Shown here is a 128-nucleotide RNA from Peptoniphilus lacrimalis, a member of the family "Ribosomal protein L10 leader". The literature on the family includes a 1994 paper in Prog Nucleic Acid Res Mol Biol by Zengel and Lindahl, "Diverse mechanisms for regulating ribosomal protein synthesis in Escherichia coli". NCBI's taxonomy places the organism under Bacteria, Bacillati, Bacillota, Tissierellales, Peptoniphilus lacrimalis.
[Rfam]
RNA sequence: AAUACUACAAGUUAACGACCGCAGACAGUAGGUGAGUAUUCUUAAUUUCCUACCGAGGUUUGAAAUUUCAAGGAUAAUAUUUUGAUUUUCAAGUCUCACAAGCGGUGUGAGAUUUUUUAUUUAUGGAG
Numbered sequence: 001a002a003u004a005c006u007a008c009a010a011g012u013u014a015a016c017g018a019c020c021g022c023a024g025a026c027a028g029u030a031g032g033u034g035a036g037u038a039u040u041c042u043u044a045a046u047u048u049c050c051u052a053c054c055g056a057g058g059u060u061u062g063a064a065a066u067u068u069c070a071a072g073g074a075u076a077a078u079a080u081u082u083u084g085a086u087u088u089u090c091a092a093g094u095c096u097c098a099c100a101a102g103c104g105g106u107g108u109g110a111g112a113u114u115u116u117u118u119a120u121u122u123a124u125g126g127a128g
Stems, first nucleotide, its partner, number of pairs: 028053005034041002093113008